[Rfam]
RNA sequence: GGGUGAGGUAGAGGCGCGGUAUUUAACAGUCCUUAAAGGAGUUUGAGAAUCUGUGAUUUUAAGGAGAAGGAAAUGCCGCCGAAGUUUGUAAUAUUUCUCUGUAUUACUUGCUGGGUCUGCAGUUAAGAGCUGCAGGACUGUCUCAAUAAACGUCCUGGUUUAUUGAGGUGUACUAUCUCAUAU
Numbered sequence: 001g002g003g004u005g006a007g008g009u010a011g012a013g014g015c016g017c018g019g020u021a022u023u024u025a026a027c028a029g030u031c032c033u034u035a036a037a038g039g040a041g042u043u044u045g046a047g048a049a050u051c052u053g054u055g056a057u058u059u060u061a062a063g064g065a066g067a068a069g070g071a072a073a074u075g076c077c078g079c080c081g082a083a084g085u086u087u088g089u090a091a092u093a094u095u096u097c098u099c100u101g102u103a104u105u106a107c108u109u110g111c112u113g114g115g116u117c118u119g120c121a122g123u124u125a126a127g128a129g130c131u132g133c134a135g136g137a138c139u140g141u142c143u144c145a146a147u148a149a150a151c152g153u154c155c156u157g158g159u160u161u162a163u164u165g166a167g168g169u170g171u172a173c174u175a176u177c178u179c180a181u182a183u
Base pairs, nucleotide, nucleotide: 006178007177008176009175010174011173016079017078018077019076020075021074022073023072024071031064032063033062034061035060036059037058038057083112084111085110088107089106090105091104092103093102094101113139114138116136117135118134119133120132121131122130123129141168142167143166144165145164146163147162148161149160150159
The record is a 183-nucleotide RNA from Lederbergia citrea, which matches "Lysine riboswitch aptamer" in Rfam. Gene Ontology term of the family: lysine biosynthetic process. The organism belongs to Lederbergia, within Bacteria. Rfam describes the family as follows. Riboswitches are metabolite binding domains within certain messenger RNAs that serve as precision sensors for their corresponding targets. The match comes from Rfam's covariance-model search (113 bits).